[Rfam]
RNA sequence: CUCUUAUCAAGAGAGGCGGAGGGACUGGCCCUAUGAAGCCCGGCAACCAUCAGGCAAAUUCAGCCUGAACGGUGCCAAUUCCUGCAAAGCCGAGUGACGGCUUUGAGAGAUGAGAG
Numbered sequence: 001c002u003c004u005u006a007u008c009a010a011g012a013g014a015g016g017c018g019g020a021g022g023g024a025c026u027g028g029c030c031c032u033a034u035g036a037a038g039c040c041c042g043g044c045a046a047c048c049a050u051c052a053g054g055c056a057a058a059u060u061c062a063g064c065c066u067g068a069a070c071g072g073u074g075c076c077a078a079u080u081c082c083u084g085c086a087a088a089g090c091c092g093a094g095u096g097a098c099g100g101c102u103u104u105g106a107g108a109g110a111u112g113a114g115a116g
Stems, first nucleotide, its partner, number of pairs: 001116008013041001015040003021031003025084001027082002042076004047072002050068006080108001085105008
RNA: SAM riboswitch aptamer (S box leader)